[Rfam]
RNA sequence: UCUGAAACUCGAGAUAUGGGUUGAACACUAAACAGUGUCUGGGCUGCAGGAUAGAUUCUGACUUCUUCAUUGUUGCUAAGAUUUGGACUUCCAAACAGCAGAAUUGAGUCUUGUAUUCCUCAUGAAUGUUUUAGGCCUAUGUCUUAGCUUUUUAGC
Numbered sequence: 001u002c003u004g005a006a007a008c009u010c011g012a013g014a015u016a017u018g019g020g021u022u023g024a025a026c027a028c029u030a031a032a033c034a035g036u037g038u039c040u041g042g043g044c045u046g047c048a049g050g051a052u053a054g055a056u057u058c059u060g061a062c063u064u065c066u067u068c069a070u071u072g073u074u075g076c077u078a079a080g081a082u083u084u085g086g087a088c089u090u091c092c093a094a095a096c097a098g099c100a101g102a103a104u105u106g107a108g109u110c111u112u113g114u115a116u117u118c119c120u121c122a123u124g125a126a127u128g129u130u131u132u133a134g135g136c137c138u139a140u141g142u143c144u145u146a147g148c149u150u151u152u153u154a155g156c
Stems, first nucleotide, its partner, number of pairs: 002155006008147002011145010021134005027129002035123003041119003045115002048112005054105007062098002072088003
This 156-nucleotide RNA from Populus trichocarpa belongs to the Rfam family "MIR2912 microRNA precursor family". Gene Ontology terms of the family: RISC complex and miRNA-mediated post-transcriptional gene silencing. Pairs were carried over by alignment from the consensus structure, which was predicted with RNAalifold. The match comes from Rfam's covariance-model search (159 bits).